[Rfam]
The record is a 125-nucleotide sequence from Roseivirga spongicola, which matches "SAM riboswitch aptamer (S box leader)" in Rfam. The family is grouped with related families in Rfam's "SAM clan". The family's consensus secondary structure is taken from published work. Lineage of the source: Bacteria > Pseudomonadati > Cytophagales > Roseivirgaceae > Roseivirga. The match comes from Rfam's covariance-model search (71 bits).
RNA sequence: GAUUUAUAAAGAAGCGUGGAGAGACAGGCUCUAUGAAGCGCUAGCAACCAUGCCGACACAUCGGCAAAGGUGCUAAAUCCUGAUCCCAAAUGAGUGUCAAGUUGGCUCUCGGGAGAAUAUAAAUU
Numbered sequence: 001g002a003u004u005u006a007u008a009a010a011g012a013a014g015c016g017u018g019g020a021g022a023g024a025c026a027g028g029c030u031c032u033a034u035g036a037a038g039c040g041c042u043a044g045c046a047a048c049c050a051u052g053c054c055g056a057c058a059c060a061u062c063g064g065c066a067a068a069g070g071u072g073c074u075a076a077a078u079c080c081u082g083a084u085c086c087c088a089a090a091u092g093a094g095u096g097u098c099a100a101g102u103u104g105g106c107u108c109u110c111g112g113g114a115g116a117a118u119a120u121a122a123a124u125u
Stems, first nucleotide, its partner, number of pairs: 001125008013042005021031003025082004043074004048070002051066004078117001084114004